[Rfam]
RNA: 6S / SsrS RNA
Organism: Aminipila luticellarii
RNA sequence: GAAAUCCUGAAGUGUUCGUUAAGGUAGUAUAAUUCAACCUACACUGUGACCUUGGGAAUCCGAGUCUUUGCAGCCUAUGUCAAGCCUCCUUUGCAGUGGAAGGCAGAAGCGGAAGCAGGGUACCCCCCUAUCUACUGAUAGGGUGUGAAUUAUCACCUGACGGCAUGUCGGGAUUUUU
Numbered sequence: 001g002a003a004a005u006c007c008u009g010a011a012g013u014g015u016u017c018g019u020u021a022a023g024g025u026a027g028u029a030u031a032a033u034u035c036a037a038c039c040u041a042c043a044c045u046g047u048g049a050c051c052u053u054g055g056g057a058a059u060c061c062g063a064g065u066c067u068u069u070g071c072a073g074c075c076u077a078u079g080u081c082a083a084g085c086c087u088c089c090u091u092u093g094c095a096g097u098g099g100a101a102g103g104c105a106g107a108a109g110c111g112g113a114a115g116c117a118g119g120g121u122a123c124c125c126c127c128c129u130a131u132c133u134a135c136u137g138a139u140a141g142g143g144u145g146u147g148a149a150u151u152a153u154c155a156c157c158u159g160a161c162g163g164c165a166u167g168u169c170g171g172g173a174u175u176u177u178u
Stems, first nucleotide, its partner, number of pairs: 002176009012166004017162003032150005037144003054125003058121004065115001068114002071111001073110002080103002085099002088096001